Small nucleolar RNA Z43: a 102-nucleotide RNA from Rhodamnia argentea. Rfam 15.1 lists 859 matches to the family in 240 species. Rfam classes the family as a C/D-box small nucleolar RNA. The literature on the family includes a 2003 paper in Nucleic Acids Res by Chen et al., "The high diversity of snoRNAs in plants: identification and comparative study of 120 snoRNA genes from Oryza sativa".
RNA sequence: GGACGGUGACGAUUGUAUCGUGAGAGGUCUCGUUCGUCGUAACUGGGUCCGAUUGGGGCCUUGCCGACCAUCCUGAAAUAUCACCACCCAUAUUCUGAGUCC
Numbered sequence: 001g002g003a004c005g006g007u008g009a010c011g012a013u014u015g016u017a018u019c020g021u022g023a024g025a026g027g028u029c030u031c032g033u034u035c036g037u038c039g040u041a042a043c044u045g046g047g048u049c050c051g052a053u054u055g056g057g058g059c060c061u062u063g064c065c066g067a068c069c070a071u072c073c074u075g076a077a078a079u080a081u082c083a084c085c086a087c088c089c090a091u092a093u094u095c096u097g098a099g100u101c102c
Base pairs, nucleotide, nucleotide: 001102002101003100004099047062049057